[Rfam]
RNA sequence: UGUGCCCUUCAAGGCUACAGCAGAAGUGCUCACAGCACAGCCUGUCAGCUUCUAGAAAAAUCUGCAUAUUCUGCU
Numbered sequence: 001u002g003u004g005c006c007c008u009u010c011a012a013g014g015c016u017a018c019a020g021c022a023g024a025a026g027u028g029c030u031c032a033c034a035g036c037a038c039a040g041c042c043u044g045u046c047a048g049c050u051u052c053u054a055g056a057a058a059a060a061u062c063u064g065c066a067u068a069u070u071c072u073g074c075u
Base pairs, nucleotide, nucleotide: 013042014041015040016039019075020074021073022072023071024070025069026038027037028036046064047063048062050060051059
RNA: Mammalian CPEB3 ribozyme
Organism: Crocodylus porosus